[Rfam]
RNA sequence: UGGUAGAUGCACCCUAAUUGGCUCCCCGACUCUUGCGUUGAGUUGGGGAGUUUCUUU
Number, nucleotide and partner (000 for none) at each position: 001u000002g013003g012004u011005a000006g000007a000008u000009g000010c000011a004012c003013c002014c000015u000016a000017a000018u000019u000020g000021g000022c000023u049024c048025c047026c046027c045028g044029a043030c042031u041032c040033u000034u000035g000036c000037g000038u000039u000040g032041a031042g030043u029044u028045g027046g026047g025048g024049a023050g000051u000052u000053u000054c000055u000056u000057u000
A member of the RNA family "Nitrogen stress-induced RNA 1" from Leptolyngbya sp. FACHB-36, 57 nucleotides long. It scores 45 bits against the family's covariance model. Lineage of the source: Bacteria > Bacillati > Cyanobacteriota > Leptolyngbyales > Leptolyngbya.